[Rfam]
RNA sequence: CUGAGGACCGCGUUCGGGUCACUUGCGGAACGCAACACCCGAUCUCCCUCCACGCGCCAGACAGGGCGCUGUCGGCGGGAGAGCGCGUCAUCAUCAG
Numbered sequence: 001c002u003g004a005g006g007a008c009c010g011c012g013u014u015c016g017g018g019u020c021a022c023u024u025g026c027g028g029a030a031c032g033c034a035a036c037a038c039c040c041g042a043u044c045u046c047c048c049u050c051c052a053c054g055c056g057c058c059a060g061a062c063a064g065g066g067c068g069c070u071g072u073c074g075g076c077g078g079g080a081g082a083g084c085g086c087g088u089c090a091u092c093a094u095c096a097g
Stems, first nucleotide, its partner, number of pairs: 001097004009087005015041004023035005043082006050075002
A member of the RNA family "L4-Archaeoglobi ribosomal protein leades" from uncultured archaeon A07HB70, 97 nucleotides long. A reference for the family is Eckert and Weinberg (2020), "Discovery of 20 novel ribosomal leader candidates in bacteria and archaea", BMC Microbiol. The match comes from Rfam's covariance-model search (64 bits). It is annotated as a cis-regulatory leader.